[Rfam]
RNA sequence: AAAGCUGUUGCGGUUAAAAAGCUCGUAGUUGGAUAUCAGUGCGUGUCCACGUCCGGUAUGCCCGCGGUUGGCGUUCGCGCGCCGCCGUGGGCUUCCAAAUAUCGGCUGGCCGCAUUCAAUGGUGCCGGAUCCGUUGACGGGCCGUUCUUACGAGGGGCCUGUCGGCGACCGGCGACGUUACCUUGAACAAAUUAGAGUGCUCAAAGCAGGCUCUCAAUGCCUGCAUAUAUAUUCAUGGAAUUGGAGAAUACGUCCCUGGCUCGAUUUGGUUGGUUUUGCGAGUCGAAGGGAAAUGAUUAACAGGGACUGACGGAGGCAUUCGUAUUGCGGCGCGAGGGGUGAAAUCCUGUGACCGUCGCACGACGAACUACUGCGAAAGCAUUUGCCGAGAAUGUUUUCAUUAGUCAAGAACGAAAGUUAGAGGUUCGAAGGCGAUCAGAUACCGCCCUAGUUCUAACCGUAAACGAUGUCGACCAGCAAUCCGCAACAGUCACUCUAUGGACUGUGCGGGCAGCUUCCCCGGGGAAACCAGAGUUUUCAGACUCCGGGGGGAGUAUAGGUGCAAAACAGAAACUUAAAGGAAU
Number, nucleotide and partner (000 for none) at each position: 001a000002a000003a000004g000005c000006u000007g000008u000009u000010g000011c547012g546013g545014u000015u000016a000017a000018a000019a544020a000021g412022c000023u410024c409025g000026u000027a000028g405029u404030u403031g000032g000033a000034u000035a000036u000037c000038a000039g000040u000041g000042c000043g000044u000045g000046u000047c000048c000049a000050c000051g000052u000053c000054c000055g000056g000057u000058a000059u000060g000061c000062c000063c000064g000065c000066g000067g000068u000069u000070g000071g000072c000073g000074u000075u000076c000077g000078c000079g000080c000081g000082c000083c000084g000085c000086c000087g000088u000089g000090g000091g000092c000093u000094u000095c000096c000097a000098a000099a000100u000101a000102u000103c000104g000105g000106c000107u000108g000109g000110c000111c000112g000113c000114a000115u000116u000117c000118a000119a000120u000121g000122g000123u000124g000125c000126c000127g000128g000129a000130u000131c000132c000133g000134u000135u000136g000137a000138c000139g000140g000141g000142c000143c000144g000145u000146u000147c000148u000149u000150a000151c000152g000153a000154g000155g000156g000157g000158c000159c000160u000161g000162u000163c000164g000165g000166c000167g000168a000169c000170c000171g000172g000173c000174g000175a000176c000177g000178u000179u000180a000181c000182c000183u000184u000185g000186a000187a000188c000189a000190a000191a000192u000193u000194a000195g000196a000197g000198u000199g000200c000201u000202c000203a000204a000205a000206g000207c000208a000209g000210g000211c000212u000213c000214u000215c000216a000217a000218u000219g000220c000221c000222u000223g000224c000225a000226u000227a000228u000229a000230u000231a000232u000233u000234c000235a000236u000237g000238g000239a000240a000241u000242u000243g000244g000245a000246g000247a000248a000249u000250a000251c000252g000253u000254c000255c000256c000257u000258g000259g000260c000261u000262c000263g000264a000265u000266u000267u000268g000269g000270u000271u000272g000273g000274u000275u000276u000277u000278g000279c000280g000281a000282g000283u000284c000285g000286a000287a000288g000289g000290g000291a000292a000293a000294u000295g000296a000297u000298u000299a000300a000301c000302a000303g399304g398305g397306a396307c394308u000309g000310a000311c390312g000313g000314a000315g387316g386317c385318a384319u000320u000321c365322g364323u000324a000325u000326u360327g359328c358329g357330g356331c355332g354333c000334g000335a000336g347337g346338g345339g000340u000341g000342a000343a000344a000345u338346c337347c336348u000349g000350u000351g000352a000353c000354c332355g331356u330357c329358g328359c327360a326361c000362g000363a000364c322365g321366a000367a000368c000369u000370a000371c000372u000373g380374c379375g000376a000377a000378a000379g374380c373381a000382u000383u000384u318385g317386c316387c315388g000389a000390g311391a000392a000393u000394g307395u000396u306397u305398u304399c303400a000401u000402u000403a030404g029405u028406c000407a000408a000409g024410a023411a000412c021413g000414a000415a000416a000417g458418u457419u456420a455421g454422a453423g000424g000425u000426u000427c451428g000429a000430a000431g447432g446433c445434g444435a000436u000437c000438a000439g000440a000441u000442a000443c000444c434445g433446c432447c431448c000449u000450a000451g427452u000453u422454c421455u420456a419457a418458c417459c000460g000461u000462a000463a000464a000465c000466g000467a000468u000469g543470u542471c541472g536473a535474c534475c000476a516477g515478c514479a000480a000481u511482c510483c509484g508485c507486a506487a000488c000489a000490g503491u502492c501493a000494c000495u000496c000497u000498a000499u000500g000501g492502a491503c490504u000505g000506u486507g485508c484509g483510g482511g481512c000513a000514g478515c477516u476517u000518c000519c000520c000521c000522g000523g530524g529525g000526a000527a000528a000529c524530c523531a000532g000533a000534g474535u473536u472537u000538u000539c000540a000541g471542a470543c469544u019545c013546c012547g011548g000549g576550g575551g574552g000553a000554g000555u000556a000557u000558a000559g568560g000561u566562g000563c000564a000565a000566a561567a000568c559569a000570g000571a000572a000573a000574c551575u550576u549577a000578a000579a000580g000581g000582a000583a000584u000